[Rfam]
RNA: Small nucleolar RNA SNORD58
RNA sequence: CUGCUGUGAUGACCAUCUUAGGACACCUUUGGAUUAAAGAUGAAAACAACACUCUAAAAUUCUGAGCAGC
Numbered sequence: 001c002u003g004c005u006g007u008g009a010u011g012a013c014c015a016u017c018u019u020a021g022g023a024c025a026c027c028u029u030u031g032g033a034u035u036a037a038a039g040a041u042g043a044a045a046a047c048a049a050c051a052c053u054c055u056a057a058a059a060u061u062c063u064g065a066g067c068a069g070c
Base pairs, nucleotide, nucleotide: 001069002068003067004066